[Rfam]
RNA sequence: GUUCUUUAGGGAUACACCGGUUCCUUAUAUGUAAUAUCCAUCUCUCACUUUGUCAGCUGCCUUUUUGUGUGGCUUGCUGAUCAUUAUAAGGUGGAAAAUGA
Numbered sequence: 001g002u003u004c005u006u007u008a009g010g011g012a013u014a015c016a017c018c019g020g021u022u023c024c025u026u027a028u029a030u031g032u033a034a035u036a037u038c039c040a041u042c043u044c045u046c047a048c049u050u051u052g053u054c055a056g057c058u059g060c061c062u063u064u065u066u067g068u069g070u071g072g073c074u075u076g077c078u079g080a081u082c083a084u085u086a087u088a089a090g091g092u093g094g095a096a097a098a099u100g101a
Stems, first nucleotide, its partner, number of pairs: 037095006052081006059074001
Small nucleolar RNA snoR99: a 101-nucleotide RNA sequence from Hibiscus syriacus. Its family is annotated with nucleolus and RNA processing in the Gene Ontology.